Annotation: Rfam assigns this 550-nucleotide part of an RNA from Plasmodium yoelii to the family "Eukaryotic large subunit ribosomal RNA". Lineage of the source: Eukaryota > Haemosporida > Plasmodiidae > Plasmodium > Plasmodium yoelii.
RNA sequence: GAAGACCCUGUUGAGCUUUACUCUAGUCUGGCUUUGUGAAACGACUUAAGAGGUGUAGAAUAAGUGGGAGUAGAGAUUGAAAUAUAUCUUCUACAUCAAUGAAAUACCACUACUUUUAAAGUUGUUUUACUUAUCUGUUUAUAGGGAAAUAUAUUUACGUUUGCCAGCUUGCUGGUCAUGCGUAUCUGAUAUUAUUUGAAUUUAAUGUGGCCUUUUUAGGUUUUCAUUAUUCUCCCACACUAUGGAGACAUAGCCAGGUGGGGAGUUUGACUGGGGCGGUACAUCUGUUAAACAAUAACGCAGAUGUCCAAAGACAAGCUCAAAGAGAACAGAAAUCUCUUGUAGACUAAAAGGGGAAAAGCUUGUUUGAUUUCUAUUUUCAGAAAAAGUAGAAAACGUGAAAGCGUGGCCUAUCGAUCCUUUAUAUUUGCAAAAUGACGGGACUUGUUCCCUACUGUGCAUAUAGAGGUGUCUGAAAAGUUACCACAGGGAUAACUGGCUUGUGGCUGCCAAGCGCUCCUAGCGACGUAGCUUUUUGAUCCUUCGAUGU
Numbered sequence: 001g002a003a004g005a006c007c008c009u010g011u012u013g014a015g016c017u018u019u020a021c022u023c024u025a026g027u028c029u030g031g032c033u034u035u036g037u038g039a040a041a042c043g044a045c046u047u048a049a050g051a052g053g054u055g056u057a058g059a060a061u062a063a064g065u066g067g068g069a070g071u072a073g074a075g076a077u078u079g080a081a082a083u084a085u086a087u088c089u090u091c092u093a094c095a096u097c098a099a100u101g102a103a104a105u106a107c108c109a110c111u112a113c114u115u116u117u118a119a120a121g122u123u124g125u126u127u128u129a130c131u132u133a134u135c136u137g138u139u140u141a142u143a144g145g146g147a148a149a150u151a152u153a154u155u156u157a158c159g160u161u162u163g164c165c166a167g168c169u170u171g172c173u174g175g176u177c178a179u180g181c182g183u184a185u186c187u188g189a190u191a192u193u194a195u196u197u198g199a200a201u202u203u204a205a206u207g208u209g210g211c212c213u214u215u216u217u218a219g220g221u222u223u224u225c226a227u228u229a230u231u232c233u234c235c236c237a238c239a240c241u242a243u244g245g246a247g248a249c250a251u252a253g254c255c256a257g258g259u260g261g262g263g264a265g266u267u268u269g270a271c272u273g274g275g276g277c278g279g280u281a282c283a284u285c286u287g288u289u290a291a292a293c294a295a296u297a298a299c300g301c302a303g304a305u306g307u308c309c310a311a312a313g314a315c316a317a318g319c320u321c322a323a324a325g326a327g328a329a330c331a332g333a334a335a336u337c338u339c340u341u342g343u344a345g346a347c348u349a350a351a352a353g354g355g356g357a358a359a360a361g362c363u364u365g366u367u368u369g370a371u372u373u374c375u376a377u378u379u380u381c382a383g384a385a386a387a388a389g390u391a392g393a394a395a396a397c398g399u400g401a402a403a404g405c406g407u408g409g410c411c412u413a414u415c416g417a418u419c420c421u422u423u424a425u426a427u428u429u430g431c432a433a434a435a436u437g438a439c440g441g442g443a444c445u446u447g448u449u450c451c452c453u454a455c456u457g458u459g460c461a462u463a464u465a466g467a468g469g470u471g472u473c474u475g476a477a478a479a480g481u482u483a484c485c486a487c488a489g490g491g492a493u494a495a496c497u498g499g500c501u502u503g504u505g506g507c508u509g510c511c512a513a514g515c516g517c518u519c520c521u522a523g524c525g526a527c528g529u530a531g532c533u534u535u536u537u538g539a540u541c542c543u544u545c546g547a548u549g550u
Stems, first nucleotide, its partner, number of pairs: 007490004012486002014482005020266004027258007036130010046119007063111005070094006134246005145238001153201004219233002223229001269282001270280003283305006308409002314366006320346002323341006347356002371395009397406003420468006429461003499540001501538001503537001505533006514524002